[Rfam]
RNA sequence: UUAUAGGUGCGUUAACGAUUGGAGCGGCAUCCUUUUUGGCUUUUUCUGCCAAAAAGAUAUAGCGAAAAGCGUGUUAAAAC
Numbered sequence: 001u002u003a004u005a006g007g008u009g010c011g012u013u014a015a016c017g018a019u020u021g022g023a024g025c026g027g028c029a030u031c032c033u034u035u036u037u038g039g040c041u042u043u044u045u046c047u048g049c050c051a052a053a054a055a056g057a058u059a060u061a062g063c064g065a066a067a068a069g070c071g072u073g074u075u076a077a078a079a080c
Base pairs, nucleotide, nucleotide: 015072016071017070019068020067024063025062029058030057031056034054035053036052037051038050039049040048
The family of this 80-nucleotide sequence from Pedobacter psychrophilus is "Flavo-1 RNA". The source organism's lineage runs through Bacteria, Bacteroidota, Sphingobacteriia, Sphingobacteriaceae and Pedobacter. Rfam classes the family as a small RNA.